The family of this 96-nucleotide RNA sequence from Orchesella cincta is "mir-210 microRNA precursor family". Gene Ontology terms of the family: RISC complex and miRNA-mediated post-transcriptional gene silencing. On this family, see Cai et al., Proc Natl Acad Sci U S A 2005: "Kaposi's sarcoma-associated herpesvirus expresses an array of viral microRNAs in latently infected cells". The family's consensus secondary structure was predicted with WAR.

Nucleotides: 096
Base pairs, nucleotide, nucleotide: 005082006081008078009077010076011075012074015071016070017069018068020066021065022064025060026059028058029057030056032054033053035051036050
Number, partner (000 for none) and nucleotide at each position: 001000u002000u003000g004000u005082u006081g007000u008078c009077u010076a011075u012074a013000a014000a015071a016070g017069c018068u019000a020066c021065u022064g023000g024000a025060c026059a027000c028058u029057g030056c031000c032054c033053a034000a035051g036050a037000u038000u039000g040000a041000g042000a043000a044000a045000g046000g047000c048000a049000c050036u051035c052000u053033u054032g055000u056030g057029c058028g059026u060025g061000u062000g063000a064022c065021a066020g067000c068018g069017g070016c071015u072000a073000u074012u075011g076010u077009a078008g079000c080000a081006c082005a083000a084000c085000a086000a087000u088000a089000g090000u091000c092000a093000u094000c095000a096000a